[Rfam]
This 209-nucleotide sequence from Chara braunii belongs to the Rfam family "U2 spliceosomal RNA". The organism belongs to Chara, within Eukaryota. The literature on the family includes a 2001 paper in RNA by Berglund et al., "Crystal structure of a model branchpoint-U2 snRNA duplex containing bulged adenosines". Rfam 15.1 lists 71,512 matches to the family in 2,642 species. The match comes from Rfam's covariance-model search (61 bits). The family's consensus secondary structure is taken from published work.
RNA sequence: AUACCUUUCUCGGGCUUUUGGCUAAAAAUAGAUCAAGUGCAGUCCGUCUGUUCUGAUCCGUGGCCCAUCUGACCACAAAUGAUAUUUAAUUAUUUAACGAUUAAUGUAAUUUGUAAGGGUCACGGAGAGGUCGGAAGAGUAGGCUUGCCUGCUCGACCCCUUCAGCGUUCCCUUCGUAUUGCACUGCAGCGAAGACCAGCGCAGCCCCC
Numbered sequence: 001a002u003a004c005c006u007u008u009c010u011c012g013g014g015c016u017u018u019u020g021g022c023u024a025a026a027a028a029u030a031g032a033u034c035a036a037g038u039g040c041a042g043u044c045c046g047u048c049u050g051u052u053c054u055g056a057u058c059c060g061u062g063g064c065c066c067a068u069c070u071g072a073c074c075a076c077a078a079a080u081g082a083u084a085u086u087u088a089a090u091u092a093u094u095u096a097a098c099g100a101u102u103a104a105u106g107u108a109a110u111u112u113g114u115a116a117g118g119g120u121c122a123c124g125g126a127g128a129g130g131u132c133g134g135a136a137g138a139g140u141a142g143g144c145u146u147g148c149c150u151g152c153u154c155g156a157c158c159c160c161u162u163c164a165g166c167g168u169u170c171c172c173u174u175c176g177u178a179u180u181g182c183a184c185u186g187c188a189g190c191g192a193a194g195a196c197c198a199g200c201g202c203a204g205c206c207c208c209c
Base pairs, nucleotide, nucleotide: 008032009031010030012023013022015020055074057072058071060069077091078090080088081087082086125162126161127160129158130157131156132155140151141150142149143148165202166201167200168199169198172194173193174192175191176190177189